The family of this 83-nucleotide sequence from Roseateles saccharophilus is "SAH (S-adenosyl-L-homocysteine) riboswitch aptamer".
RNA sequence: CCUGCCGAGGGGUGCUGCGACGGAGGCCUCAAGCGCCUCCGCCACGCUCGGCGAGGGCGAUGGAACAAGGGCGCCCUCUCUGC
Number, nucleotide and partner (000 for none) at each position: 001c000002c000003u053004g052005c051006c050007g049008a048009g000010g000011g000012g000013u000014g000015c000016u000017g000018c000019g000020a000021c041022g040023g039024a038025g037026g036027c000028c000029u000030c000031a000032a000033g000034c000035g000036c026037c025038u024039c023040c022041g021042c000043c000044a000045c000046g000047c000048u008049c007050g006051g005052c004053g003054a000055g000056g000057g000058c000059g000060a000061u000062g000063g000064a000065a000066c000067a000068a000069g000070g000071g000072c000073g000074c000075c000076c000077u000078c000079u000080c000081u000082g000083c000
Lineage of the source: Bacteria > Pseudomonadati > Pseudomonadota > Sphaerotilaceae > Roseateles. On this family, see Wang et al., Mol Cell 2008: "Riboswitches that sense S-adenosylhomocysteine and activate genes involved in coenzyme recycling". It scores 44 bits against the family's covariance model.